[Rfam]
RNA: Guanidine-I riboswitch aptamer
RNA sequence: UAAAAUGUUUUCUAGGGUUCCGCAGGCAAUGCCUGGGCUGGUCCGAGAGAAAACUCGCAGCUUUGUCUGUGACACGGAGGGAUAAAAGCCCGGGAGAC
Numbered sequence: 001u002a003a004a005a006u007g008u009u010u011u012c013u014a015g016g017g018u019u020c021c022g023c024a025g026g027c028a029a030u031g032c033c034u035g036g037g038c039u040g041g042u043c044c045g046a047g048a049g050a051a052a053a054c055u056c057g058c059a060g061c062u063u064u065g066u067c068u069g070u071g072a073c074a075c076g077g078a079g080g081g082a083u084a085a086a087a088g089c090c091c092g093g094g095a096g097a098c
Stems, first nucleotide, its partner, number of pairs: 007054006015044002020041002022038001023035005056071005073093001075096001079091003